RNA sequence: CUCUUCUUCUUUCUCUCCCAACCCUUGUACCAGUGUCAGUUGUAAUAGCUACUGGUACAGAGGAUGGAAGGGGAAGUGGUUUAGGG
Numbered sequence: 001c002u003c004u005u006c007u008u009c010u011u012u013c014u015c016u017c018c019c020a021a022c023c024c025u026u027g028u029a030c031c032a033g034u035g036u037c038a039g040u041u042g043u044a045a046u047a048g049c050u051a052c053u054g055g056u057a058c059a060g061a062g063g064a065u066g067g068a069a070g071g072g073g074a075a076g077u078g079g080u081u082u083a084g085g086g
Base pairs, nucleotide, nucleotide: 010075011074012073014071015070016068017067018066023060026059027058028057029056030055031054032053